[Rfam]
RNA sequence: GGAAAUAAACGGGCGGUGUAAUAAGCCUAUCGGACCCGGGGGCGGUACCCGGCGCCUCCACCAGGAACAGCGGUUCGCCGCUGUUGCUGAUGGGGGCGAAACAGGAUCGACGAGGGUGUAAAGAUCGACCUUUUUCCCGGCAUUGUACCACCGUUAUCGGGCUACCCUUAUAGUUGCCAACGACAACUAUGCUGAGGCACGUCUCGCUGCUUAA
Numbered sequence: 001g002g003a004a005a006u007a008a009a010c011g012g013g014c015g016g017u018g019u020a021a022u023a024a025g026c027c028u029a030u031c032g033g034a035c036c037c038g039g040g041g042g043c044g045g046u047a048c049c050c051g052g053c054g055c056c057u058c059c060a061c062c063a064g065g066a067a068c069a070g071c072g073g074u075u076c077g078c079c080g081c082u083g084u085u086g087c088u089g090a091u092g093g094g095g096g097c098g099a100a101a102c103a104g105g106a107u108c109g110a111c112g113a114g115g116g117u118g119u120a121a122a123g124a125u126c127g128a129c130c131u132u133u134u135u136c137c138c139g140g141c142a143u144u145g146u147a148c149c150a151c152c153g154u155u156a157u158c159g160g161g162c163u164a165c166c167c168u169u170a171u172a173g174u175u176g177c178c179a180a181c182g183a184c185a186a187c188u189a190u191g192c193u194g195a196g197g198c199a200c201g202u203c204u205c206g207c208u209g210c211u212u213a214a
Base pairs, nucleotide, nucleotide: 001137002136003135004134005133014127015126016125017124026116027115028114030113031112032111036052037051038050039049040048053098054097055096056095057094058093059092138153139152140151